[Rfam]
RNA sequence: UGACCACUUCCGACAAGAAGUUGAGGCCAACGGACAGCCGGGUCAAAUGCCGA
Number, nucleotide and partner (000 for none) at each position: 001u045002g044003a043004c042005c041006a021007c020008u019009u018010c017011c000012g000013a000014c000015a000016a000017g010018a009019a008020g007021u006022u000023g000024a000025g000026g000027c000028c000029a000030a000031c000032g000033g000034a000035c000036a000037g000038c000039c000040g000041g005042g004043u003044c002045a001046a000047a000048u000049g000050c000051c000052g000053a000
RNA: Streptococcus sRNA SpF59 (ldcC RNA)